Shown here is a 118-nucleotide RNA from Tepidibacter thalassicus, a member of the family "FMN riboswitch aptamer (RFN element)".
From the family's description: The RFN element is a highly conserved domain that is found frequently in the 5'-untranslated regions of prokaryotic mRNAs that encode for flavin mononucleotide (FMN) biosynthesis and transport proteins.
RNA sequence: UAAAUCCUUCAGGGCAGGGUGAAAUUCCCGACCGGCGGUAUAGCCCGCGAGCCAUAUUUAUGGCAGACUUGGUGAAAUUCCAAGGCCGACAGUAAAGUCUGGAUGGAAGAAGGAGUAG
Numbered sequence: 001u002a003a004a005u006c007c008u009u010c011a012g013g014g015c016a017g018g019g020u021g022a023a024a025u026u027c028c029c030g031a032c033c034g035g036c037g038g039u040a041u042a043g044c045c046c047g048c049g050a051g052c053c054a055u056a057u058u059u060a061u062g063g064c065a066g067a068c069u070u071g072g073u074g075a076a077a078u079u080c081c082a083a084g085g086c087c088g089a090c091a092g093u094a095a096a097g098u099c100u101g102g103a104u105g106g107a108a109g110a111a112g113g114a115g116u117a118g
Stems, first nucleotide, its partner, number of pairs: 003116001005114006017029003031098002033088002035048004043086002051064003068084005090101003
It scores 129 bits against the family's covariance model. The source organism's lineage runs through Bacteria, Bacillati, Peptostreptococcaceae, Tepidibacter and Tepidibacter thalassicus.